[Rfam]
A member of the RNA family "ASpks TB sRNA" from Streptomyces genisteinicus, 69 nucleotides long.

RNA sequence: CUUGAGCGAGCCCAGCCACAGCGGUUCCUCGCGGCCCUGUCCGUAGACCGACAGCAGCGCCUGCGCCUC
Numbered sequence: 001c002u003u004g005a006g007c008g009a010g011c012c013c014a015g016c017c018a019c020a021g022c023g024g025u026u027c028c029u030c031g032c033g034g035c036c037c038u039g040u041c042c043g044u045a046g047a048c049c050g051a052c053a054g055c056a057g058c059g060c061c062u063g064c065g066c067c068u069c
Stems, first nucleotide, its partner, number of pairs: 014026004028065001030063001032059002037054003041050001043048001
Rfam classes the family as an antisense RNA. The match comes from Rfam's covariance-model search (67 bits).